[Rfam]
Small nucleolar RNA SNORD24: a 94-nucleotide sequence from Torulaspora delbrueckii. A reference for the family is Nicoloso et al. (1996), "Intron-encoded, antisense small nucleolar RNAs: the characterization of nine novel species points to their direct role as guides for the 2'-O-ribose methylation of rRNAs", J Mol Biol. Rfam classes the family as a C/D-box small nucleolar RNA. Lineage of the source: Eukaryota > Opisthokonta > Fungi > Ascomycota > Torulaspora. The match comes from Rfam's covariance-model search (50 bits).

RNA sequence: UCCAAAUGAUGUAUUAAAAAAUAUUUGCUACUUCGGACAGGGCUUCAAGCCUUGAAUGAGACAUACCAUUUUUAUCACCAAGAUCUCUGAUGGA
Numbered sequence: 001u002c003c004a005a006a007u008g009a010u011g012u013a014u015u016a017a018a019a020a021a022u023a024u025u026u027g028c029u030a031c032u033u034c035g036g037a038c039a040g041g042g043c044u045u046c047a048a049g050c051c052u053u054g055a056a057u058g059a060g061a062c063a064u065a066c067c068a069u070u071u072u073u074a075u076c077a078c079c080a081a082g083a084u085c086u087c088u089g090a091u092g093g094a
Base pairs, nucleotide, nucleotide: 001094002093003092004091
Dot-bracket structure: ((((......................................................................................))))